Record summary: A member of the RNA family "tRNA" from Serpentinicella alkaliphila, 86 nucleotides long. Rfam classes the family as a transfer RNA. NCBI's taxonomy places the organism under Bacteria, Bacillati, Bacillota, Natronincolaceae, Serpentinicella. From the family's description: Transfer RNA (tRNA) molecules are approximately 80 nucleotides in length.
RNA sequence: GGAGAGAUGUCCGAGUUGGCUAAGGGGCACGCCUGGAAAGCGUGUAAGACUGCAAGGUCCCGCGGGUUCGAGUCCCGCUCUCUCCG
Number, nucleotide and partner (000 for none) at each position: 001g085002g084003a083004g082005a081006g080007a079008u000009g000010u026011c025012c024013g000014a000015g000016u000017u000018g000019g000020c000021u000022a000023a000024g012025g011026g010027g000028c044029a043030c042031g041032c040033c000034u000035g000036g000037a000038a000039a000040g032041c031042g030043u029044g028045u000046a000047a000048g000049a000050c000051u000052g000053c000054a000055a000056g000057g000058u000059c000060c000061c000062g078063c077064g076065g075066g074067u000068u000069c000070g000071a000072g000073u000074c066075c065076c064077g063078c062079u007080c006081u005082c004083u003084c002085c001086g000